[Rfam]
RNA sequence: AAAAUAAGCCUGUCAGUGGAUGGCUCGGUUCGAGUGCCGAUGAAGGGCGUGCCAAGCUGCGAUAAGCUCCGGGGAGACGCAGGGAGUCUUUGAUCCGGAGAUACCCUAAUGGGACAUCCCCACACUUUUGUGUGAGUCCGUUGAGGACGGGGAACGCCCCGAAUUGAAACAUCUUAGUAGGGGCAGGAGGAGAAAUCAACCGAGAUGUCGCGAGUAGAGGCGAUCGAAAACGACACAGUUCAAACCGAAUCCCGCAAGGGAGAUGUGGUGUUGUAAGCCCACCGUGCGGUACCUUGACGCGAAGCGGAAGUCAUCUGGAACGAUGCACCACAGGGGGUGACAGUCCCGUACGCGUAUGCGAAGAGGGCCUGGUGGAGUCUUGAGUACCGUGGGUUGGAAUUCUCGCGGGAAUCCUGGGGGUCACCCACCUCCAAAACUAAAUACUCCUCGAAACCGAUAGCGAAGUAGUAGCGUGAGCGAAAGCUGAAAAGUAACCCUGGAAAGGUGGUUAAAAGCGCCUGAAAUUGACAGGUGACGGUGG
Numbered sequence: 001a002a003a004a005u006a007a008g009c010c011u012g013u014c015a016g017u018g019g020a021u022g023g024c025u026c027g028g029u030u031c032g033a034g035u036g037c038c039g040a041u042g043a044a045g046g047g048c049g050u051g052c053c054a055a056g057c058u059g060c061g062a063u064a065a066g067c068u069c070c071g072g073g074g075a076g077a078c079g080c081a082g083g084g085a086g087u088c089u090u091u092g093a094u095c096c097g098g099a100g101a102u103a104c105c106c107u108a109a110u111g112g113g114a115c116a117u118c119c120c121c122a123c124a125c126u127u128u129u130g131u132g133u134g135a136g137u138c139c140g141u142u143g144a145g146g147a148c149g150g151g152g153a154a155c156g157c158c159c160c161g162a163a164u165u166g167a168a169a170c171a172u173c174u175u176a177g178u179a180g181g182g183g184c185a186g187g188a189g190g191a192g193a194a195a196u197c198a199a200c201c202g203a204g205a206u207g208u209c210g211c212g213a214g215u216a217g218a219g220g221c222g223a224u225c226g227a228a229a230a231c232g233a234c235a236c237a238g239u240u241c242a243a244a245c246c247g248a249a250u251c252c253c254g255c256a257a258g259g260g261a262g263a264u265g266u267g268g269u270g271u272u273g274u275a276a277g278c279c280c281a282c283c284g285u286g287c288g289g290u291a292c293c294u295u296g297a298c299g300c301g302a303a304g305c306g307g308a309a310g311u312c313a314u315c316u317g318g319a320a321c322g323a324u325g326c327a328c329c330a331c332a333g334g335g336g337g338u339g340a341c342a343g344u345c346c347c348g349u350a351c352g353c354g355u356a357u358g359c360g361a362a363g364a365g366g367g368c369c370u371g372g373u374g375g376a377g378u379c380u381u382g383a384g385u386a387c388c389g390u391g392g393g394u395u396g397g398a399a400u401u402c403u404c405g406c407g408g409g410a411a412u413c414c415u416g417g418g419g420g421u422c423a424c425c426c427a428c429c430u431c432c433a434a435a436a437c438u439a440a441a442u443a444c445u446c447c448u449c450g451a452a453a454c455c456g457a458u459a460g461c462g463a464a465g466u467a468g469u470a471g472c473g474u475g476a477g478c479g480a481a482a483g484c485u486g487a488a489a490a491g492u493a494a495c496c497c498u499g500g501a502a503a504g505g506u507g508g509u510u511a512a513a514a515g516c517g518c519c520u521g522a523a524a525u526u527g528a529c530a531g532g533u534g535a536c537g538g539u540g541g
Base pairs, nucleotide, nucleotide: 008533009532010531011530012529013528014527015526016525022519023484024483027455028454029452030451031450032449033448034447036444044107045106046105047104048061049060050059067100068099069098070097071096072095076088077087078086111120112119113118136148137147138146139145155186156184157183158182159181160180166173167172196203197202207234208233209232210231217225218224237438238437239436240435245268246267247266250261251260252259253258279375280374281373282372288369289368290367304353305352306351310326312325313324314323315322329333335347336346337345387408388407389406390405391404392403393402416432417431418430419429420428471478472477
Description
Shown here is a 541-nucleotide part of an RNA from Methanolinea tarda, a member of the family "Archaeal large subunit ribosomal RNA". The source organism's lineage runs through Archaea, Methanobacteriota, Methanomicrobia, Methanoregulaceae and Methanolinea tarda. The family is grouped with related families in Rfam's "LSU clan". Rfam's curators put it in the seed alignment.